RNA: chrB-a RNA
Organism: Albidovulum aquaemixtae
RNA sequence: CGCAUGGGGCCUGCGACCGCGCCCCGUGAGGCCACGGCCCAAGCGUCGCAUCCUUCACAUGCCAACGAAAGGAUGCCCCAUG
Numbered sequence: 001c002g003c004a005u006g007g008g009g010c011c012u013g014c015g016a017c018c019g020c021g022c023c024c025c026g027u028g029a030g031g032c033c034a035c036g037g038c039c040c041a042a043g044c045g046u047c048g049c050a051u052c053c054u055u056c057a058c059a060u061g062c063c064a065a066c067g068a069a070a071g072g073a074u075g076c077c078c079c080a081u082g
Stems, first nucleotide, its partner, number of pairs: 005026006048076006